This 116-nucleotide RNA sequence from Brachypodium distachyon belongs to the Rfam family "MIR5070 microRNA precursor family". The family has 2 seed sequences and 266 matches in Rfam 15.1. Its family is annotated with RISC complex and miRNA-mediated post-transcriptional gene silencing in the Gene Ontology. The organism belongs to Brachypodium, within Eukaryota. A search with the family's covariance model found it, with a score of 102 bits. Pairs were carried over by alignment from the consensus structure, which was predicted with RNAalifold.
RNA sequence: CAGGAUACCCAUUGACCCUCUUUAGUUCAACCAAAUGAAGUAAAAAUUUAAAAUGAUACAAUUUUUUAGAAAACUAGUUCAUUUGUUUGAACUAAGAAGGAUCAACGGGUAACCUG
Number, nucleotide and partner (000 for none) at each position: 001c000002a115003g114004g113005a000006u111007a110008c109009c108010c107011a000012u105013u104014g103015a102016c000017c100018c099019u098020c000021u096022u095023u094024a093025g092026u091027u090028c089029a088030a087031c000032c085033a084034a083035a082036u081037g080038a079039a078040g000041u076042a075043a000044a000045a000046a000047u000048u000049u000050a000051a000052a000053a000054u000055g000056a000057u000058a000059c000060a000061a000062u000063u000064u000065u000066u000067u000068a000069g000070a000071a000072a000073a000074c000075u042076a041077g000078u039079u038080c037081a036082u035083u034084u033085g032086u000087u030088u029089g028090a027091a026092c025093u024094a023095a022096g021097a000098a019099g018100g017101a000102u015103c014104a013105a012106c000107g010108g009109g008110u007111a006112a000113c004114c003115u002116g000